[Rfam]
RNA sequence: AAUUACAGACAUGAAGGGAUGAUGGGUGACCGAUGAAGUUCUAAUCUUAUUUCGAACAUAAAAAAUACAUCUUGAAAAAUUUGUAUUUGAUUAGAAAUAGGAUUAGUCUGCCCAUUUUUCAUAUAGAUUCCAUUCGUUUUUUGAAUGGUUUUGUUUUCAUUUGCGACUAAUCCUUCCACAAACUUGCGGGAGGAUUUUUUU
Numbered sequence: 001a002a003u004u005a006c007a008g009a010c011a012u013g014a015a016g017g018g019a020u021g022a023u024g025g026g027u028g029a030c031c032g033a034u035g036a037a038g039u040u041c042u043a044a045u046c047u048u049a050u051u052u053c054g055a056a057c058a059u060a061a062a063a064a065a066u067a068c069a070u071c072u073u074g075a076a077a078a079a080u081u082u083g084u085a086u087u088u089g090a091u092u093a094g095a096a097a098u099a100g101g102a103u104u105a106g107u108c109u110g111c112c113c114a115u116u117u118u119u120c121a122u123a124u125a126g127a128u129u130c131c132a133u134u135c136g137u138u139u140u141u142u143g144a145a146u147g148g149u150u151u152u153g154u155u156u157u158c159a160u161u162u163g164c165g166a167c168u169a170a171u172c173c174u175u176c177c178a179c180a181a182a183c184u185u186g187c188g189g190g191a192g193g194a195u196u197u198u199u200u201u
Base pairs, nucleotide, nucleotide: 016120017119018118019117023114024113025112026111031106042105043104044103045102046101047100048099049098050097051096052095053094058086059085060084062082063081064080066078130148131147132146133145134144135143136142169196170195171194172193173192174191175190176189177188179186

The record is a 201-nucleotide RNA from Aneurinibacillus migulanus, which matches "Bacillus sRNA ncr1575" in Rfam.
For this family Rfam cites "Identification of regulatory RNAs in Bacillus subtilis" (Irnov et al., Nucleic Acids Res, 2010).